[Rfam]
Nucleotides: 355
Base pairs, nucleotide, nucleotide: 001318002317003316009315011198012197013196014195016192018191019190020189022085023084024083025082026081027080028079031077032074033073034072035071036070037069038068039067040066045063046062047061048060049059050058051057089185090184091183093180094179095178096177100174101173102172103171104170105169106168107151111147112146113145114144115143116142117141118140122133123132124131159166160165203244204243205242206241207240208239212238213237217233218232219231220230255314256313257312258311259310260309263292264291265290266289267288268287269286270285271284272283273282274281296303297302320347321346322345329340330339331338332337
Number, partner (000 for none) and nucleotide at each position: 001318g002317g003316u004000g005000u006000a007000a008000a009315g010000g011198g012197c013196g014195c015000g016192u017000a018191g019190g020189u021000g022085g023084u024083u025082g026081u027080c028079u029000g030000u031077g032074u033073c034072u035071c036070a037069u038068g039067u040066g041000a042000a043000a044000a045063c046062u047061c048060a049059g050058g051057g052000c053000u054000c055000a056000a057051c058050u059049c060048u061047g062046a063045g064000a065000u066040u067039g068038c069037g070036u071035g072034g073033g074032a075000a076000a077031c078000u079028a080027g081026g082025c083024a084023g085022c086000u087000a088000g089185a090184g091183g092000a093180c094179g095178g096177u097000a098000g099000a100174g101173g102172g103171g104170a105169g106168u107151g108000g109000a110000a111147u112146u113145c114144c115143c116142g117141g118140u119000g120000u121000a122133g123132c124131g125000g126000u127000a128000a129000a130000a131124u132123g133122c134000g135000u136000a137000g138000a139000u140118a141117u142116c143115g144114g145113g146112a147111g148000g149000a150000a151107c152000a153000c154000c155000g156000g157000u158000g159166g160165c161000g162000a163000a164000g165160g166159c167000g168106g169105c170104u171103c172102u173101c174100u175000g176000g177096g178095c179094c180093g181000a182000u183091c184090c185089u186000g187000a188000c189020g190019c191018u192016g193000a194000g195014g196013c197012g198011c199000g200000a201000a202000a203244g204243c205242u206241a207240g208239g209000g210000g211000a212238g213237c214000g215000a216000a217233c218232c219231g220230g221000a222000u223000u224000a225000g226000a227000u228000a229000c230220c231219c232218g233217g234000g235000u236000a237213g238212u239208c240207c241206u242205a243204g244203c245000c246000g247000u248000a249000a250000a251000c252000g253000a254000u255314g256313g257312g258311u259310g260309c261000u262000a263292g264291g265290u266289g267288u268287u269286g270285g271284g272283g273282g274281g275000u276000a277000a278000a279000g280000a281274c282273c283272c284271u285270u286269c287268a288267g289266u290265g291264c292263c293000g294000a295000a296303g297302c298000c299000a300000a301000c302297g303296c304000g305000a306000u307000a308000a309260g310259c311258a312257u313256c314255c315009c316003a317002c318001c319000u320347g321346g322345g323000g324000a325000g326000u327000a328000c329340g330339g331338c332337c333000g334000c335000a336000a337332g338331g339330u340329u341000g342000a343000a344000a345322c346321u347320c348000a349000a350000a351000g352000g353000a354000a355000u